[Rfam]
RNA sequence: CCGCUCCUUCUCAAUGAGCCGCCGGAUCUCCAAGUAAGGAGGCCAGGGCCGCCGGAUUCGGUGACCCCAGUCUCCUCGCUGGCGGAUCUGGCGUCCAGAGAAGUACAAG
Numbered sequence: 001c002c003g004c005u006c007c008u009u010c011u012c013a014a015u016g017a018g019c020c021g022c023c024g025g026a027u028c029u030c031c032a033a034g035u036a037a038g039g040a041g042g043c044c045a046g047g048g049c050c051g052c053c054g055g056a057u058u059c060g061g062u063g064a065c066c067c068c069a070g071u072c073u074c075c076u077c078g079c080u081g082g083c084g085g086a087u088c089u090g091g092c093g094u095c096c097a098g099a100g101a102a103g104u105a106c107a108a109g
Stems, first nucleotide, its partner, number of pairs: 005105001007103006016096001018094002021092009031082001034079002037076007046067003050063005
About this RNA:
Shown here is a 109-nucleotide sequence from Oryza nivara, a member of the family "MIR1846 microRNA precursor family". Its family is annotated with miRNA-mediated post-transcriptional gene silencing and RISC complex in the Gene Ontology. Pairs were carried over by alignment from the consensus structure, which was predicted with RNAalifold. The match comes from Rfam's covariance-model search (84 bits). For this family Rfam cites "Characterization and expression profiles of miRNAs in rice seeds" (Xue et al., Nucleic Acids Res, 2009).